[Rfam]
RNA sequence: GGCUUAUCGAGAAAGACCGAGGGAAGGGCCCUACGACGUCUUAGCAACCUGCGAACAAGGUGCUAAUUCCCAUUCCGGAAUCGCCGGAAAAAGAUGAGCG
Numbered sequence: 001g002g003c004u005u006a007u008c009g010a011g012a013a014a015g016a017c018c019g020a021g022g023g024a025a026g027g028g029c030c031c032u033a034c035g036a037c038g039u040c041u042u043a044g045c046a047a048c049c050u051g052c053g054a055a056c057a058a059g060g061u062g063c064u065a066a067u068u069c070c071c072a073u074u075c076c077g078g079a080a081u082c083g084c085c086g087g088a089a090a091a092a093g094a095u096g097a098g099c100g
Stems, first nucleotide, its partner, number of pairs: 002099007013042005021031003026071003043064004048060002051056001068092001073089006
The record is a 100-nucleotide RNA sequence from Algoriphagus kandeliae, which matches "SAM riboswitch aptamer (S box leader)" in Rfam. The family's consensus secondary structure is taken from published work. Taxonomically the source falls in Algoriphagus (Bacteria, Bacteroidota, Cytophagales, Cyclobacteriaceae).